[Rfam]
RNA: S15-Flavobacteria ribosomal protein leader
RNA sequence: UAUAUUUGCAGCCUUCGAGUUAAUUUCGAAGUAGCAUAAGAAUCAUUUACAAUAAUAUUGGCAUG
Numbered sequence: 001u002a003u004a005u006u007u008g009c010a011g012c013c014u015u016c017g018a019g020u021u022a023a024u025u026u027c028g029a030a031g032u033a034g035c036a037u038a039a040g041a042a043u044c045a046u047u048u049a050c051a052a053u054a055a056u057a058u059u060g061g062c063a064u065g
Base pairs, nucleotide, nucleotide: 014030015029016028017027018026019025